[Rfam]
RNA sequence: GUACCUCCCGGAGGAGUGGCACUAAGAACACAGGUGAUUGUUGUGGUGGUUAUAUCAAUGCAUUUGUGUUCUCAGGUCACCCCUUUGGGGAACUC
Numbered sequence: 001g002u003a004c005c006u007c008c009c010g011g012a013g014g015a016g017u018g019g020c021a022c023u024a025a026g027a028a029c030a031c032a033g034g035u036g037a038u039u040g041u042u043g044u045g046g047u048g049g050u051u052a053u054a055u056c057a058a059u060g061c062a063u064u065u066g067u068g069u070u071c072u073c074a075g076g077u078c079a080c081c082c083c084u085u086u087g088g089g090g091a092a093c094u095c
Stems, first nucleotide, its partner, number of pairs: 007089002011085004016080004025072009
RNA: MIR398 microRNA precursor family